[Rfam]
RNA sequence: ACCCUUUGAUACCCUUUCCUGUCAUAUCUGAACACUGGUGUUGGUAGGUGUGAAAGGAGGAAAAGUAAUAUUUAAGUUGGCUUCACAGUGUUGCAGCCUGGCAUAUAGUAUAUGGGUUAAUUUCAAACAGGU
Dot-bracket structure: ..(((((...........(((((.((((........))))..)))))........)))))................(((((((........(((.............)))...)))))))............
RNA: Small nucleolar RNA SNORA61
Organism: Castor canadensis